[Rfam]
RNA sequence: AGGUAUACAUAACUCCUAGCCUUUACGCCUAAGUGGCCCGUCAUGAGCCAUAGGGGGUUCUGGCCGUGGCGAAGCCACCAGGGUGCAGGGUAGAAAUGCCGGCAUCUCCCGUAUUUGGAAAGGUGUUACUGUGUCACAACU
Numbered sequence: 001a002g003g004u005a006u007a008c009a010u011a012a013c014u015c016c017u018a019g020c021c022u023u024u025a026c027g028c029c030u031a032a033g034u035g036g037c038c039c040g041u042c043a044u045g046a047g048c049c050a051u052a053g054g055g056g057g058u059u060c061u062g063g064c065c066g067u068g069g070c071g072a073a074g075c076c077a078c079c080a081g082g083g084u085g086c087a088g089g090g091u092a093g094a095a096a097u098g099c100c101g102g103c104a105u106c107u108c109c110c111g112u113a114u115u116u117g118g119a120a121a122g123g124u125g126u127u128a129c130u131g132u133g134u135c136a137c138a139a140c141u
Stems, first nucleotide, its partner, number of pairs: 003135001011127003015123002019064003025058002028055002033051004066078005081107006089100004108118002